Shown here is a 74-nucleotide RNA from Kalanchoe fedtschenkoi, a member of the family "Small nucleolar RNA R12". Taxonomically the source falls in Kalanchoe (Eukaryota, Streptophyta, Embryophyta, Crassulaceae). Rfam classes the family as a C/D-box small nucleolar RNA. snoR12 is a C/D box small nucleolar RNA, which acts as a methylation guide for 25S ribosomal RNA in plants. snoR12 has been alternatively named snoZ44 in Arabidopsis and snoZ131 in rice.
[Rfam]
RNA sequence: CUGAGUGACGAAAAAAAAUCGUUCGGAUUCCCAAUGAUCAACCGUGAUCUGACAACCAGCUACUUCCGACUCAC
Numbered sequence: 001c002u003g004a005g006u007g008a009c010g011a012a013a014a015a016a017a018a019u020c021g022u023u024c025g026g027a028u029u030c031c032c033a034a035u036g037a038u039c040a041a042c043c044g045u046g047a048u049c050u051g052a053c054a055a056c057c058a059g060c061u062a063c064u065u066c067c068g069a070c071u072c073a074c
Base pairs, nucleotide, nucleotide: 002073003072004071005070